[Rfam]
RNA sequence: UGGGUUCUAGUCUAACAGGUAGGACACUUAAUUUUGAUUUAAGAGAUUGGUAGUUCGAAUCUACCGAACCCAG
Numbered sequence: 001u002g003g004g005u006u007c008u009a010g011u012c013u014a015a016c017a018g019g020u021a022g023g024a025c026a027c028u029u030a031a032u033u034u035u036g037a038u039u040u041a042a043g044a045g046a047u048u049g050g051u052a053g054u055u056c057g058a059a060u061c062u063a064c065c066g067a068a069c070c071c072a073g
Stems, first nucleotide, its partner, number of pairs: 001072007010025004027043005049065005